[Rfam]
RNA sequence: CGAAAAGUUUUCUAGGGUUCCGCUCCUUUUAUUUUCGAAAGUGAGGUCUGGUCCGAGAGAAAACGGCAUCUGCCCAGCCGGCAGACGCUACACGGAGGGAGAAAAGCCCGGGAGGU
Numbered sequence: 001c002g003a004a005a006a007g008u009u010u011u012c013u014a015g016g017g018u019u020c021c022g023c024u025c026c027u028u029u030u031a032u033u034u035u036c037g038a039a040a041g042u043g044a045g046g047u048c049u050g051g052u053c054c055g056a057g058a059g060a061a062a063a064c065g066g067c068a069u070c071u072g073c074c075c076a077g078c079c080g081g082c083a084g085a086c087g088c089u090a091c092a093c094g095g096a097g098g099g100a101g102a103a104a105a106g107c108c109c110g111g112g113a114g115g116u
Base pairs, nucleotide, nucleotide: 007064008063009062010061011060012059015054016053020051021050022048023045024044025043027041028040029039030038065089066088067087069085070084071083072082091111093114097109098108099107

Rfam assigns this 116-nucleotide RNA from Effusibacillus lacus to the family "Guanidine-I riboswitch aptamer". Lineage of the source: Bacteria > Bacillati > Bacillota > Alicyclobacillaceae > Effusibacillus. About the family: This family represents a conserved RNA structure found upstream of the ykkC and yxkD genes in Bacillus subtilis and related genes in other bacteria. A search with the family's covariance model found it, with a score of 86 bits.